RNA sequence: UCAUCCCGUGCGGGAGAGCCCCCGCGUGACCGGUUCGACCGGGAGCGACGGGGCGCCGAAGGGGCAAACUCCCCGGAACCUCUCAGGCGCCAGGACUGCACGGGUCAG
Numbered sequence: 001u002c003a004u005c006c007c008g009u010g011c012g013g014g015a016g017a018g019c020c021c022c023c024g025c026g027u028g029a030c031c032g033g034u035u036c037g038a039c040c041g042g043g044a045g046c047g048a049c050g051g052g053g054c055g056c057c058g059a060a061g062g063g064g065c066a067a068a069c070u071c072c073c074c075g076g077a078a079c080c081u082c083u084c085a086g087g088c089g090c091c092a093g094g095a096c097u098g099c100a101c102g103g104g105u106c107a108g
Stems, first nucleotide, its partner, number of pairs: 006103008020053004055088003058084002062082003069075001
RNA: Glycine riboswitch aptamer
Organism: Knoellia koreensis